The family of this 361-nucleotide sequence from Campylobacter fetus is "transfer-messenger RNA". The base pairs follow the family's consensus structure, which is taken from published work.

RNA sequence: GGGGGUGACUUGGCUUCGACAGGAGUAGUGGAGUCACGGCGGCAUGCAGCUUUGGGCAAAGCUUAAAAAGCCCAAAAUAAAAUUAAACGCAAACAACGUUAAAUUCGCUCCUGCUUACGCUAAAGCUGCGUAAGUCCAGUUGAGCCCUGCGAAACUUCAAUGCUAUCUAGAAGCUUUAGCGGGUAAUUUUUGAUAGCUUAGAUUAAAGAAUUGACGAAUCUAUAAUUGAAAUUUAGUCUUAGCUUAGCUAAACGCUUUGGGAAGUGAGCGAAGCUAAGUGAAACUCUCACUUCUGCUAAGCAUGUAGAGGCUAUGAAUCUAUUAUUUUUGGACUGCAGUUCGAUCCUGCACACCUCCACCA
Numbered sequence: 001g002g003g004g005g006u007g008a009c010u011u012g013g014c015u016u017c018g019a020c021a022g023g024a025g026u027a028g029u030g031g032a033g034u035c036a037c038g039g040c041g042g043c044a045u046g047c048a049g050c051u052u053u054g055g056g057c058a059a060a061g062c063u064u065a066a067a068a069a070g071c072c073c074a075a076a077a078u079a080a081a082a083u084u085a086a087a088c089g090c091a092a093a094c095a096a097c098g099u100u101a102a103a104u105u106c107g108c109u110c111c112u113g114c115u116u117a118c119g120c121u122a123a124a125g126c127u128g129c130g131u132a133a134g135u136c137c138a139g140u141u142g143a144g145c146c147c148u149g150c151g152a153a154a155c156u157u158c159a160a161u162g163c164u165a166u167c168u169a170g171a172a173g174c175u176u177u178a179g180c181g182g183g184u185a186a187u188u189u190u191u192g193a194u195a196g197c198u199u200a201g202a203u204u205a206a207a208g209a210a211u212u213g214a215c216g217a218a219u220c221u222a223u224a225a226u227u228g229a230a231a232u233u234u235a236g237u238c239u240u241a242g243c244u245u246a247g248c249u250a251a252a253c254g255c256u257u258u259g260g261g262a263a264g265u266g267a268g269c270g271a272a273g274c275u276a277a278g279u280g281a282a283a284c285u286c287u288c289a290c291u292u293c294u295g296c297u298a299a300g301c302a303u304g305u306a307g308a309g310g311c312u313a314u315g316a317a318u319c320u321a322u323u324a325u326u327u328u329u330g331g332a333c334u335g336c337a338g339u340u341c342g343a344u345c346c347u348g349c350a351c352a353c354c355u356c357c358a359c360c361a
Stems, first nucleotide, its partner, number of pairs: 001357007020330010034316003038312003043304005048063005053074005120144002124141005146183005152177003160199001162197005201227005207221003213238003242279008256268001260294004265289003334350005
The organism belongs to Campylobacter fetus subsp. fetus, within Bacteria. Its Rfam clan is "tRNA clan".